[Rfam]
RNA sequence: CCUUAAAACAUCAUUGAGUGCAGCGUUGAUGAAUCCCUACAUUCUUCUCCUUCUUCUUCUUUCUUCUGCCGGUGUGGGAUGAUUUCACCAGCGCUGCACCCAAUCAUGUUUUUU
Numbered sequence: 001c002c003u004u005a006a007a008a009c010a011u012c013a014u015u016g017a018g019u020g021c022a023g024c025g026u027u028g029a030u031g032a033a034u035c036c037c038u039a040c041a042u043u044c045u046u047c048u049c050c051u052u053c054u055u056c057u058u059c060u061u062u063c064u065u066c067u068g069c070c071g072g073u074g075u076g077g078g079a080u081g082a083u084u085u086c087a088c089c090a091g092c093g094c095u096g097c098a099c100c101c102a103a104u105c106a107u108g109u110u111u112u113u114u
Base pairs, nucleotide, nucleotide: 006111007110008109009108010107011106013104014103015102016101018099019098020097021096022095023094024093025092026091027090028089030087031086032085
RNA: MIR397 microRNA precursor family